[Rfam]
RNA: Group II catalytic intron D1-D4-1
Organism: Clostridium sp. HMP27
RNA sequence: UAAACUACAUAGUGAUAUGUAGCUGAACUAUCAGAAGUCAGCAGAGGUCAUAGUACCACGCUAAACGCGUUAGCGUGGGAAGGAC
Numbered sequence: 001u002a003a004a005c006u007a008c009a010u011a012g013u014g015a016u017a018u019g020u021a022g023c024u025g026a027a028c029u030a031u032c033a034g035a036a037g038u039c040a041g042c043a044g045a046g047g048u049c050a051u052a053g054u055a056c057c058a059c060g061c062u063a064a065a066c067g068c069g070u071u072a073g074c075g076u077g078g079g080a081a082g083g084a085c
Stems, first nucleotide, its partner, number of pairs: 001025002005022007038045002047085003056078006